This 90-nucleotide sequence from Scyliorhinus torazame belongs to the Rfam family "Selenocysteine transfer RNA".

[Rfam]
RNA sequence: GCCUGGAUGACCCGCGCGCGGCAGUCUGGGGUGCAGGCUUCAAAUCUGUAGCUGUCUAGUGACAGAGUGGUUCAAUUCCACCUUUCGGGC
Number, nucleotide and partner (000 for none) at each position: 001g090002c089003c088004u087005g086006g085007a084008u000009g082010a000011c000012c031013c030014g000015c028016g027017c000018g000019c000020g000021g000022c000023a000024g000025u000026c000027u016028g015029g000030g013031g012032u050033g049034c048035a047036g046037g045038c000039u000040u000041c000042a000043a000044a000045u037046c036047u035048g034049u033050a032051g000052c065053u064054g063055u062056c061057u000058a000059g000060u000061g056062a055063c054064a053065g052066a000067g081068u080069g079070g078071u000072u000073c000074a000075a000076u000077u000078c070079c069080a068081c067082c009083u000084u007085u006086c005087g004088g003089g002090c001

The base pairs follow the family's consensus structure, which is taken from published work.
Its family is annotated with triplet codon-amino acid adaptor activity in the Gene Ontology.